[Rfam]
RNA sequence: GGAGAGAUACCCAAGUGGCUAUAAGGGGCUCCUCUGCUAAGGGAGUAGACGUGUCAUGCGUGCGAGGGUUCGAAUCCCUCUCUCUCCG
Numbered sequence: 001g002g003a004g005a006g007a008u009a010c011c012c013a014a015g016u017g018g019c020u021a022u023a024a025g026g027g028g029c030u031c032c033u034c035u036g037c038u039a040a041g042g043g044a045g046u047a048g049a050c051g052u053g054u055c056a057u058g059c060g061u062g063c064g065a066g067g068g069u070u071c072g073a074a075u076c077c078c079u080c081u082c083u084c085u086c087c088g
Stems, first nucleotide, its partner, number of pairs: 001087007010027003029045005064080005